Small nucleolar RNA R64/Z200 family: a 96-nucleotide sequence from Miscanthus lutarioriparius. The match comes from Rfam's covariance-model search (72 bits). The organism belongs to Miscanthus, within Eukaryota. Rfam links the family to the GO terms nucleolus and RNA processing.
[Rfam]
RNA sequence: UGAAAGCUAUGAUGAAUCAUGAAAAUUAUAUUCCCAUGUCAGACUUCAGAGAUGCCUUGGCAUUAAUGAGAAGAUUUUUCAUGUUCUGAGCAGUGA
Numbered sequence: 001u002g003a004a005a006g007c008u009a010u011g012a013u014g015a016a017u018c019a020u021g022a023a024a025a026u027u028a029u030a031u032u033c034c035c036a037u038g039u040c041a042g043a044c045u046u047c048a049g050a051g052a053u054g055c056c057u058u059g060g061c062a063u064u065a066a067u068g069a070g071a072a073g074a075u076u077u078u079u080c081a082u083g084u085u086c087u088g089a090g091c092a093g094u095g096a
Stems, first nucleotide, its partner, number of pairs: 001096001003094001006091002051064004